[Rfam]
Rfam assigns this 125-nucleotide RNA from Georgenia satyanarayanai to the family "SAM (S-adenosyl methionine) riboswitch aptamer". Pairs were carried over by alignment from the consensus structure, which is taken from published work.
RNA sequence: GGUUCAGAGCACCAGUGCGCACCUCGAGUGCGCUAAGCCCCGGCUUGCUGGUCGGCAACCCGCCACGUGCGGCGGGUGCCCCGGGUGAUGACCUGGUCCCGUGACCGUCGGGACAACGGAGCGCA
Numbered sequence: 001g002g003u004u005c006a007g008a009g010c011a012c013c014a015g016u017g018c019g020c021a022c023c024u025c026g027a028g029u030g031c032g033c034u035a036a037g038c039c040c041c042g043g044c045u046u047g048c049u050g051g052u053c054g055g056c057a058a059c060c061c062g063c064c065a066c067g068u069g070c071g072g073c074g075g076g077u078g079c080c081c082c083g084g085g086u087g088a089u090g091a092c093c094u095g096g097u098c099c100c101g102u103g104a105c106c107g108u109c110g111g112g113a114c115a116a117c118g119g120a121g122c123g124c125a
Stems, first nucleotide, its partner, number of pairs: 001093004009053001011052006036045002054080003059076003063072002096114006